RNA sequence: UCGACUGUGCUCGUACAGGAUCACUUCUAUAGUUGAUUCUACUACUGAGAACACCAGCGACAGGUUUCGUCAACACCCGUGAUGAUGAGUUAGUCGCUCUGCCGUCCCGGAAAACGAUUUACGUCGAUGACUCGAAAAAUUUAAUUUUUCACGGCAUCGAGCCAUUCUGAGCGGAA
Dot-bracket structure: (.(..(..(((.....((((....))))..))).)...).).....((..(.(((.......))).)..)).....((((...............(((((((((..(.((....................)).)((((......))))...)))))..))))........))))..

The record is a 176-nucleotide sequence from Theileria orientalis, which matches "ACEA small nucleolar RNA U3" in Rfam. From the family's description: Small nucleolar RNAs (snoRNAs) are involved in the processing and modification of rRNA in the nucleolus. It is annotated as a C/D-box small nucleolar RNA. It scores 98 bits against the family's covariance model. Its Rfam clan is "U3 clan". The family has 28 seed sequences and 2,156 matches in Rfam 15.1. Lineage of the source: Eukaryota > Alveolata > Aconoidasida > Theileriidae > Theileria orientalis.